[Rfam]
Nucleotides: 156
Base pairs, nucleotide, nucleotide: 004106005105006104007103008102009101010100011099012098015095016094017144018143019142020141080091081090082089083088133151135149136148137147
Number, partner (000 for none) and nucleotide at each position: 001000u002000u003000c004106g005105u006104c007103u008102c009101a010100c011099g012098u013000a014000a015095c016094u017144g018143g019142c020141g021000a022000a023000a024000a025000c026000g027000u028000c029000c030000u031000g032000a033000g034000c035000a036000a037000g038000a039000u040000g041000c042000u043000g044000c045000a046000u047000c048000g049000c050000c051000a052000a053000g054000a055000u056000g057000g058000a059000g060000c061000a062000u063000c064000c065000u066000g067000a068000g069000a070000g071000c072000g073000g074000c075000g076000g077000a078000a079000g080091a081090u082089g083088g084000g085000u086000a087000u088083c089082c090081a091080u092000c093000g094016g095015g096000a097000a098012g099011c100010g101009u102008g103007a104006g105005a106004u107000u108000c109000u110000g111000c112000g113000g114000g115000u116000c117000c118000g119000g120000a121000c122000a123000a124000a125000u126000u127000g128000g129000g130000c131000c132000c133151u134000a135149g136148c137147c138000g139000u140000a141020c142019g143018c144017c145000u146000g147137g148136g149135u150000a151133g152000c153000c154000u155000g156000g